A member of the RNA family "Small nucleolar RNA R21" from Corchorus capsularis, 74 nucleotides long. Rfam classes the family as a C/D-box small nucleolar RNA. A reference for the family is Barneche et al. (2001), "Identification of 66 box C/D snoRNAs in Arabidopsis thaliana: extensive gene duplications generated multiple isoforms predicting new ribosomal RNA 2'-O-methylation sites", J Mol Biol. Rfam links the family to the GO terms nucleolus and RNA processing. The family's consensus secondary structure was predicted with PFOLD.

RNA sequence: CAUCUCAAUGAUGUUUUGUAUUGUUUAUGUUAAAAGUAGCCUGAUUUUGAUGAUAAUUUUAUUUCUGAGAGAUG
Numbered sequence: 001c002a003u004c005u006c007a008a009u010g011a012u013g014u015u016u017u018g019u020a021u022u023g024u025u026u027a028u029g030u031u032a033a034a035a036g037u038a039g040c041c042u043g044a045u046u047u048u049g050a051u052g053a054u055a056a057u058u059u060u061a062u063u064u065c066u067g068a069g070a071g072a073u074g
Stems, first nucleotide, its partner, number of pairs: 001074006